This 88-nucleotide RNA sequence from Thermomonospora umbrina belongs to the Rfam family "ZMP/ZTP riboswitch aptamer (pfl RNA motif)".
RNA sequence: UGGCCCGUACGUGACUGGCGCACACAAGGUGGGAUCGACCACCGGGGAGCGAAGAGCCGUCCGCACGCCGCGCGCCUGGGCGUACGGG
Numbered sequence: 001u002g003g004c005c006c007g008u009a010c011g012u013g014a015c016u017g018g019c020g021c022a023c024a025c026a027a028g029g030u031g032g033g034a035u036c037g038a039c040c041a042c043c044g045g046g047g048a049g050c051g052a053a054g055a056g057c058c059g060u061c062c063g064c065a066c067g068c069c070g071c072g073c074g075c076c077u078g079g080g081c082g083u084a085c086g087g088g
Stems, first nucleotide, its partner, number of pairs: 003057002008053001010051003015046002017076005029042004065083005